[Rfam]
RNA sequence: AAAAAAACCUAGGGGAGCUACACCCUCGACGUGGCUGAGAAGUUGGAGUCUGAUCCAACGACCCUUCAACUUGAUCCAGAUAAUCCUGGCGAAAGGAAAGUUUCGAUGUCAACG
Numbered sequence: 001a002a003a004a005a006a007a008c009c010u011a012g013g014g015g016a017g018c019u020a021c022a023c024c025c026u027c028g029a030c031g032u033g034g035c036u037g038a039g040a041a042g043u044u045g046g047a048g049u050c051u052g053a054u055c056c057a058a059c060g061a062c063c064c065u066u067c068a069a070c071u072u073g074a075u076c077c078a079g080a081u082a083a084u085c086c087u088g089g090c091g092a093a094a095g096g097a098a099a100g101u102u103u104c105g106a107u108g109u110c111a112a113c114g
Stems, first nucleotide, its partner, number of pairs: 006103002009100002011065004017035005042059005070095003076089004
Shown here is a 114-nucleotide RNA from Pajaroellobacter abortibovis, a member of the family "TPP riboswitch aptamer (THI element)". A search with the family's covariance model found it, with a score of 63 bits.